Shown here is an 89-nucleotide RNA sequence from Chenopodium quinoa, a member of the family "Small nucleolar RNA R11/Z151". Rfam classes the family as a C/D-box small nucleolar RNA. The base pairs follow the family's consensus structure, which was predicted with PFOLD.
RNA sequence: GGGCUAAAUGAUGAUAAUUUAAAUUGAAUCUUAGCGGAUUUCAGUGAGAUUAUUAAUCUAUGAUCUGAUUGUUACACACACUGAUGCCC
Numbered sequence: 001g002g003g004c005u006a007a008a009u010g011a012u013g014a015u016a017a018u019u020u021a022a023a024u025u026g027a028a029u030c031u032u033a034g035c036g037g038a039u040u041u042c043a044g045u046g047a048g049a050u051u052a053u054u055a056a057u058c059u060a061u062g063a064u065c066u067g068a069u070u071g072u073u074a075c076a077c078a079c080a081c082u083g084a085u086g087c088c089c
Stems, first nucleotide, its partner, number of pairs: 001089004
Dot-bracket structure: ((((.................................................................................))))